[Rfam]
RNA sequence: GGGAAAUGAGGAGUGGUACAGGCUCGCUUAAUUAUGUGAGAGGGGUGCCCGCCCCAAUAAGCCUGUUACGACAGUGGGGCUUCCCUGUGAUUUACCAUCUGAUCCU
Numbered sequence: 001g002g003g004a005a006a007u008g009a010g011g012a013g014u015g016g017u018a019c020a021g022g023c024u025c026g027c028u029u030a031a032u033u034a035u036g037u038g039a040g041a042g043g044g045g046u047g048c049c050c051g052c053c054c055c056a057a058u059a060a061g062c063c064u065g066u067u068a069c070g071a072c073a074g075u076g077g078g079g080c081u082u083c084c085c086u087g088u089g090a091u092u093u094a095c096c097a098u099c100u101g102a103u104c105c106u
Stems, first nucleotide, its partner, number of pairs: 001106004014097005023040005042085004047080003063077004
This 106-nucleotide sequence from Triticum turgidum belongs to the Rfam family "Small nucleolar RNA Z279/snoR105/snoR108". Rfam links the family to the GO terms RNA processing and nucleolus. This family includes the plant snoRNAs known as Z279, snoR105 and snoR108. A reference for the family is Marker et al. (2002), "Experimental RNomics: identification of 140 candidates for small non-messenger RNAs in the plant Arabidopsis thaliana", Curr Biol. It is annotated as a C/D-box small nucleolar RNA. Pairs were carried over by alignment from the consensus structure, which was predicted with PFOLD. Clan: snoU13 clan.